[Rfam]
RNA sequence: CAAGGCGGCCGCGACUGGCGAGGGUGGGACACCACCGGGGAGCGGCCGCACGAUCCCAUGAGGCGUCGCCCGCCUGGGCGCCGGGA
Numbered sequence: 001c002a003a004g005g006c007g008g009c010c011g012c013g014a015c016u017g018g019c020g021a022g023g024g025u026g027g028g029a030c031a032c033c034a035c036c037g038g039g040g041a042g043c044g045g046c047c048g049c050a051c052g053a054u055c056c057c058a059u060g061a062g063g064c065g066u067c068g069c070c071c072g073c074c075u076g077g078g079c080g081c082c083g084g085g086a
Stems, first nucleotide, its partner, number of pairs: 005049008015039002017074004024035004063081005

This 86-nucleotide RNA from Schaalia hyovaginalis belongs to the Rfam family "ZMP/ZTP riboswitch aptamer (pfl RNA motif)". The match comes from Rfam's covariance-model search (53 bits). The base pairs follow the family's consensus structure, which is taken from published work. NCBI's taxonomy places the organism under Bacteria, Bacillati, Actinomycetota, Actinomycetales, Schaalia.